Rfam assigns this 64-nucleotide RNA sequence from Caenorhabditis remanei to the family "mir-56 microRNA precursor family". It is one of the family's seed sequences.
RNA sequence: UGGCGAAUCCAUUCCGGGUGUACCUCACAGCAAUCCUGACGGUACCCGUAAUGCUUCCGCUGAG
Numbered sequence: 001u002g003g004c005g006a007a008u009c010c011a012u013u014c015c016g017g018g019u020g021u022a023c024c025u026c027a028c029a030g031c032a033a034u035c036c037u038g039a040c041g042g043u044a045c046c047c048g049u050a051a052u053g054c055u056u057c058c059g060c061u062g063a064g
Base pairs, nucleotide, nucleotide: 002061003060004059005058007056010053011052012051013050015048016047017046018045019044022043023042024041025039026038027037